Background: A member of the RNA family "Small nucleolar RNA SNORA12" from Ardeotis kori, 143 nucleotides long. For this family Rfam cites "A novel experimental approach for systematic identification of box H/ACA snoRNAs from eukaryotes" (Gu et al., Nucleic Acids Res, 2005). The family's RNA type in Rfam is H/ACA-box small nucleolar RNA. Rfam 15.1 lists 571 matches to the family in 378 species. The source organism's lineage runs through Eukaryota, Chordata, Amniota, Sauropsida and Ardeotis. It scores 75 bits against the family's covariance model. Rfam describes the family as follows. U108 belongs to the H/ACA family of snoRNAs. The sequence is predicted to guide the pseudouridylation of the U372 residue in the 28S rRNA subunit. However it has not been reported as a pseudouridylation site.

[Rfam]
RNA sequence: UAUUGUGGUGGUUUCUGUAUUUGGCGGAUCUGUAACAGUAUCAGAGCGGCCUUAAGCUACCACAGAGAUCAGAAAGGAGAUGGCUACGCUGUGAGCUUUUUUCAGGCUUUUAGUUUUCAGCUUUUUGUUUGGCUCCUACAGAA
Numbered sequence: 001u002a003u004u005g006u007g008g009u010g011g012u013u014u015c016u017g018u019a020u021u022u023g024g025c026g027g028a029u030c031u032g033u034a035a036c037a038g039u040a041u042c043a044g045a046g047c048g049g050c051c052u053u054a055a056g057c058u059a060c061c062a063c064a065g066a067g068a069u070c071a072g073a074a075a076g077g078a079g080a081u082g083g084c085u086a087c088g089c090u091g092u093g094a095g096c097u098u099u100u101u102u103c104a105g106g107c108u109u110u111u112a113g114u115u116u117u118c119a120g121c122u123u124u125u126u127g128u129u130u131g132g133c134u135c136c137u138a139c140a141g142a143a
Stems, first nucleotide, its partner, number of pairs: 005063007023051003027047001029045004076136004081131001082090003103127004